Bacterial small signal recognition particle RNA: a 98-nucleotide sequence from Metamycoplasma hominis. Its Rfam clan is "SRP clan". Lineage of the source: Bacteria > Bacillati > Mycoplasmoidales > Metamycoplasmataceae > Metamycoplasma hominis. It is annotated as a non-coding RNA gene. The signal recognition particle (SRP) is a universally conserved ribonucleoprotein involved in the co-translational targeting of proteins to membranes.
RNA sequence: UUAUUAUGCCAUGAGAAUGAUAACCUUGUAACUUGGUCAGGAUAGAAAUAUAGCAGCCAUAUCGAGAAGUAUUAUGUCUUGUGGUUUUUUUAUUAGAU
Numbered sequence: 001u002u003a004u005u006a007u008g009c010c011a012u013g014a015g016a017a018u019g020a021u022a023a024c025c026u027u028g029u030a031a032c033u034u035g036g037u038c039a040g041g042a043u044a045g046a047a048a049u050a051u052a053g054c055a056g057c058c059a060u061a062u063c064g065a066g067a068a069g070u071a072u073u074a075u076g077u078c079u080u081g082u083g084g085u086u087u088u089u090u091u092a093u094u095a096g097a098u
Stems, first nucleotide, its partner, number of pairs: 004092001006090001008088001009084006017075006025066004034059004042051003